SAM/SAH riboswitch aptamer: a 53-nucleotide RNA from Aliiruegeria lutimaris. The source organism's lineage runs through Bacteria, Pseudomonadati, Alphaproteobacteria, Rhodobacterales and Aliiruegeria. Gene Ontology terms of the family: S-adenosylmethionine metabolic process and regulation of gene expression.
RNA sequence: CUUUUGCCACAACGGCUUCCUGGCGUGGCACCAGAUUUGGACGUAAUGGAGCA
Numbered sequence: 001c002u003u004u005u006g007c008c009a010c011a012a013c014g015g016c017u018u019c020c021u022g023g024c025g026u027g028g029c030a031c032c033a034g035a036u037u038u039g040g041a042c043g044u045a046a047u048g049g050a051g052c053a
Stems, first nucleotide, its partner, number of pairs: 005030006013022002015052003019049002